[Rfam]
RNA sequence: AUAUGUUCAAUAAACUUUUAAGAGAAAAAAAAAUCUGUUCCUAUCAGUUUAAUAUCUGAUAUGUCCUCCAGGUGAGGACAACAUAUUAAGCGGAUUUUUGAACACUGGAGGUGAAGGUGGGCUUGCUCUCUUCUCUCCAUGCAUUGACCCAGUAUUGCAGUGCUUCUGGGAACAGUGCCUCUGUC
Numbered sequence: 001a002u003a004u005g006u007u008c009a010a011u012a013a014a015c016u017u018u019u020a021a022g023a024g025a026a027a028a029a030a031a032a033a034u035c036u037g038u039u040c041c042u043a044u045c046a047g048u049u050u051a052a053u054a055u056c057u058g059a060u061a062u063g064u065c066c067u068c069c070a071g072g073u074g075a076g077g078a079c080a081a082c083a084u085a086u087u088a089a090g091c092g093g094a095u096u097u098u099u100g101a102a103c104a105c106u107g108g109a110g111g112u113g114a115a116g117g118u119g120g121g122c123u124u125g126c127u128c129u130c131u132u133c134u135c136u137c138c139a140u141g142c143a144u145u146g147a148c149c150c151a152g153u154a155u156u157g158c159a160g161u162g163c164u165u166c167u168g169g170g171a172a173c174a175g176u177g178c179c180u181c182u183g184u185c
Base pairs, nucleotide, nucleotide: 007023008022042061043060044059045058046057047056063079064078065077066076067075068074107138108137109136110135111134113132114131119128120127121126141178142177143176144175145174146173148170149169150168151167152166
Dot-bracket structure: ......((.............))..................((((((........)))))).((((((.....))))))...........................(((((.((....(((....)))..)).)))))..((((((.(((((.............)))))..)))))).......
Rfam assigns this 185-nucleotide sequence from Oryzias javanicus to the family "U2 spliceosomal RNA". About the family: U2 is a small nuclear RNA (snRNA) component of the spliceosome (involved in pre-mRNA splicing). Rfam classes the family as a spliceosomal small nuclear RNA. The family has 208 seed sequences and 71,512 matches in Rfam 15.1. The base pairs follow the family's consensus structure, which is taken from published work. A search with the family's covariance model found it, with a score of 98 bits.